[Rfam]
Nucleotides: 504
Base pairs, nucleotide, nucleotide: 001504002503003502004501007498008497009496012457013456014455015454016453017452018451020062021061022060023059024058034050035049036048037047038046039045073488074487075486076485077484098112099111100110101109102108113128114127115126116125131222132221133220134219135218136217137216149209151207458476459475460474461473462472463471
Number, partner (000 for none) and nucleotide at each position: 001504c002503c003502a004501g005000a006000u007498c008497c009496a010000a011000g012457g013456c014455c015454g016453c017452a018451u019000u020062g021061c022060c023059c024058c025000u026000c027000a028000c029000g030000c031000a032000c033000a034050a035049g036048a037047g038046a039045c040000g041000g042000u043000u044000u045039g046038u047037c048036u049035c050034u051000c052000u053000c054000u055000c056000a057000a058024g059023g060022g061021g062020c063000g064000g065000g066000c067000u068000a069000a070000g071000g072000u073488c074487u075486g076485a077484g078000u079000a080000u081000u082000c083000a084000a085000a086000c087000c088000u089000c090000g091000a092000u093000a094000c095000a096000c097000u098112g099111g100110c101109u102108c103000u104000c105000g106000a107000u108102g109101a110100g111099c112098c113128c114127g115126a116125c117000g118000a119000a120000c121000a122000a123000c124000a125116g126115u127114c128113g129000c130000u131222g132221u133220g134219a135218c136217a137216a138000a139000c140000c141000a142000g143000a144000a145000a146000u147000g148000c149209c150000u151207c152000u153000c154000g155000u156000a157000u158000c159000g160000c161000a162000c163000u164000a165000u166000c167000g168000c169000c170000c171000a172000g173000a174000g175000a176000a177000g178000u179000c180000g181000u182000c183000a184000a185000a186000g187000a188000u189000g190000g191000a192000g193000g194000g195000u196000u197000g198000u199000g200000a201000u202000u203000a204000c205000g206000g207151g208000u209149g210000u211000u212000g213000a214000a215000a216137u217136u218135g219134u220133c221132g222131c223000u224000g225000g226000g227000g228000u229000u230000g231000a232000g233000g234000u235000g236000c237000u238000c239000g240000u241000a242000c243000u244000u245000g246000c247000a248000u249000c250000g251000a252000c253000a254000g255000a256000c257000a258000u259000c260000c261000u262000u263000c264000u265000a266000u267000c268000u269000c270000a271000c272000c273000u274000g275000g276000c277000g278000c279000u280000g281000c282000g283000g284000c285000g286000c287000a288000c289000g290000u291000u292000u293000g294000g295000c296000g297000g298000a299000g300000c301000u302000c303000c304000g305000c306000a307000c308000g309000u310000c311000g312000a313000a314000c315000g316000c317000u318000a319000g320000g321000u322000a323000g324000g325000g326000a327000u328000g329000g330000a331000u332000a333000c334000g335000g336000c337000g338000g339000g340000a341000g342000u343000a344000u345000u346000c347000c348000u349000a350000u351000u352000u353000g354000g355000g356000a357000c358000u359000g360000c361000u362000g363000u364000g365000g366000u367000u368000u369000u370000g371000a372000c373000c374000c375000u376000g377000g378000u379000a380000a381000a382000g383000g384000c385000u386000c387000u388000u389000a390000g391000c392000u393000a394000a395000c396000c397000c398000u399000u400000u401000g402000g403000u404000g405000a406000a407000c408000g409000a410000g411000g412000a413000a414000u415000g416000g417000u418000g419000u420000c421000u422000a423000g424000a425000u426000g427000u428000c429000a430000a431000g432000a433000g434000u435000a436000u437000c438000u439000c440000u441000u442000g443000a444000g445000u446000g447000c448000a449000a450000u451018a452017u453016g454015c455014g456013g457012c458476u459475c460474g461473u462472u463471g464000g465000u466000c467000a468000a469000u470000a471463c472462a473461a474460c475459g476458a477000a478000a479000c480000u481000c482000a483000a484077u485076u486075c487074a488073g489000a490000c491000u492000a493000c494000u495000c496009u497008g498007g499000u500000c501004c502003u503002g504001g